RNA sequence: UGUUAAUAGGGGAAUGAUGUCUCCCUCAGUUUUUACUGAAACCGCAAUGAACUUGCUAAUGACUUCUGCCUCAGU
Numbered sequence: 001u002g003u004u005a006a007u008a009g010g011g012g013a014a015u016g017a018u019g020u021c022u023c024c025c026u027c028a029g030u031u032u033u034u035a036c037u038g039a040a041a042c043c044g045c046a047a048u049g050a051a052c053u054u055g056c057u058a059a060u061g062a063c064u065u066c067u068g069c070c071u072c073a074g075u
Stems, first nucleotide, its partner, number of pairs: 010025004016066002019063003044056004